This 102-nucleotide RNA from Caenorhabditis nigoni belongs to the Rfam family "mir-36 microRNA precursor family".
The base pairs follow the family's consensus structure, which was predicted with WAR.
The family is grouped with related families in Rfam's "mir-36 clan".
On this family, see Ohler et al., RNA 2004: "Patterns of flanking sequence conservation and a characteristic upstream motif for microRNA gene identification".
Its family is annotated with miRNA-mediated post-transcriptional gene silencing and RISC complex in the Gene Ontology.
The organism belongs to Caenorhabditis, within Eukaryota.
RNA sequence: UCCACUGGUCUGGAUCAGACCUCCGCUAGUUUUUUUCUGCGGUAAUAUUCCAAUGCGAAGGUUAUCACCAGGUUAAAACUGGUAGAGGUCCGAUCUAGGCAA
Numbered sequence: 001u002c003c004a005c006u007g008g009u010c011u012g013g014a015u016c017a018g019a020c021c022u023c024c025g026c027u028a029g030u031u032u033u034u035u036u037c038u039g040c041g042g043u044a045a046u047a048u049u050c051c052a053a054u055g056c057g058a059a060g061g062u063u064a065u066c067a068c069c070a071g072g073u074u075a076a077a078a079c080u081g082g083u084a085g086a087g088g089u090c091c092g093a094u095c096u097a098g099g100c101a102a
Stems, first nucleotide, its partner, number of pairs: 016092001018090005025083009036072002042068002045065003